[Rfam]
RNA sequence: CCAAAGGCUUUCUAGUAUUCCCCCCUUUAUUGGAUGCGAACUGACAGUUCGUAUCUUUUUUU
Number, nucleotide and partner (000 for none) at each position: 001c000002c000003a028004a027005a026006g025007g024008c000009u000010u000011u000012c000013u000014a000015g000016u000017a000018u000019u000020c000021c000022c000023c000024c007025c006026u005027u004028u003029a000030u000031u000032g056033g055034a054035u053036g052037c051038g050039a049040a048041c047042u000043g000044a000045c000046a000047g041048u040049u039050c038051g037052u036053a035054u034055c033056u032057u000058u000059u000060u000061u000062u000
RNA: Bacillus sRNA ncr1241
Organism: Bacillus atrophaeus